[Rfam]
RNA sequence: GGCCAUCGCAAGAAACUCCUCCUCCCGGGAUCUUGCGAUAACAAGGCCGGUCUCACUCCCCUUUUGGAUACCGGCCUUACAAUAAUGGCAUCCGUCGCUCUCCUCCCGCGACGGAUGCCAUUU
Numbered sequence: 001g002g003c004c005a006u007c008g009c010a011a012g013a014a015a016c017u018c019c020u021c022c023u024c025c026c027g028g029g030a031u032c033u034u035g036c037g038a039u040a041a042c043a044a045g046g047c048c049g050g051u052c053u054c055a056c057u058c059c060c061c062u063u064u065u066g067g068a069u070a071c072c073g074g075c076c077u078u079a080c081a082a083u084a085a086u087g088g089c090a091u092c093c094g095u096c097g098c099u100c101u102c103c104u105c106c107c108g109c110g111a112c113g114g115a116u117g118c119c120a121u122u123u
Stems, first nucleotide, its partner, number of pairs: 007037003011033003043078009088118011
Notes:
A member of the RNA family "Alphaproteobacterial ar14" from Falsochrobactrum shanghaiense, 123 nucleotides long. Gene Ontology term of the family: biological process involved in symbiotic interaction. It scores 68 bits against the family's covariance model. Pairs were carried over by alignment from the consensus structure. Smr14C2 was renamed NfeR1 (Nodule Formation Efficiency RNA) highly expressed in salt stress and during the symbiotic interaction on legume roots. A reference for the family is del Val et al. (2012), "A survey of sRNA families in alpha-proteobacteria", RNA Biol. The family has 118 seed sequences and 784 matches in Rfam 15.1. Taxonomically the source falls in Falsochrobactrum (Bacteria, Pseudomonadati, Pseudomonadota, Alphaproteobacteria).